[Rfam]
RNA sequence: GAUCGCGGUGAUGACCACAUGAAAUUCAAGCUCAACAGACCGGAAUGCAGGUUUCUCUCUCUAGGGAAAUUUGCGUGUCGACUACCCCGCUGAACUGAGCGAUU
Numbered sequence: 001g002a003u004c005g006c007g008g009u010g011a012u013g014a015c016c017a018c019a020u021g022a023a024a025u026u027c028a029a030g031c032u033c034a035a036c037a038g039a040c041c042g043g044a045a046u047g048c049a050g051g052u053u054u055c056u057c058u059c060u061c062u063a064g065g066g067a068a069a070u071u072u073g074c075g076u077g078u079c080g081a082c083u084a085c086c087c088c089g090c091u092g093a094a095c096u097g098a099g100c101g102a103u104u
Stems, first nucleotide, its partner, number of pairs: 001104006
Rfam assigns this 104-nucleotide RNA sequence from Rhododendron williamsianum to the family "Small nucleolar RNA Z107/R87". A search with the family's covariance model found it, with a score of 90 bits. The family's RNA type in Rfam is C/D-box small nucleolar RNA. Rfam links the family to the GO terms nucleolus and RNA processing.